[Rfam]
RNA sequence: CCGGGCGCCGUUCGGGUCCGGUGGACACAGAGGGCACCGGCUCUUCGUUACCGGCGCUGCUCAUGUCCGAAUUGCUUCUUUUGGAGGAUUUGGAGAUGAGAA
Numbered sequence: 001c002c003g004g005g006c007g008c009c010g011u012u013c014g015g016g017u018c019c020g021g022u023g024g025a026c027a028c029a030g031a032g033g034g035c036a037c038c039g040g041c042u043c044u045u046c047g048u049u050a051c052c053g054g055c056g057c058u059g060c061u062c063a064u065g066u067c068c069g070a071a072u073u074g075c076u077u078c079u080u081u082u083g084g085a086g087g088a089u090u091u092g093g094a095g096a097u098g099a100g101a102a
Stems, first nucleotide, its partner, number of pairs: 001021006008015002033058003037054004060100005067093007075086003
RNA: Repression of heat shock gene expression (ROSE) element
Organism: Sphingobium boeckii